[Rfam]
RNA sequence: CGGACCAACUCUGGAGAGCGGCCGUAUGGCCCACCGAAGGGGCAGGCGGAACGCAACCAGAAUGCGCCGCUAUCUCUCAGGUACCGAGGACAGAGGGGUGUGA
Numbered sequence: 001c002g003g004a005c006c007a008a009c010u011c012u013g014g015a016g017a018g019c020g021g022c023c024g025u026a027u028g029g030c031c032c033a034c035c036g037a038a039g040g041g042g043c044a045g046g047c048g049g050a051a052c053g054c055a056a057c058c059a060g061a062a063u064g065c066g067c068c069g070c071u072a073u074c075u076c077u078c079a080g081g082u083a084c085c086g087a088g089g090a091c092a093g094a095g096g097g098g099u100g101u102g103a
Base pairs, nucleotide, nucleotide: 006098009095010094011093012092013091020031021030022029023028033082034081035080036078037077040076041075042074046070047069048068049067
Dot-bracket structure: .....(..(((((......((((....)))).(((((..(((...((((.................))))...))))).)))........)))))..).....
Shown here is a 103-nucleotide RNA sequence from Massilia sp. Root335, a member of the family "Glycine riboswitch aptamer".
A search with the family's covariance model found it, with a score of 52 bits.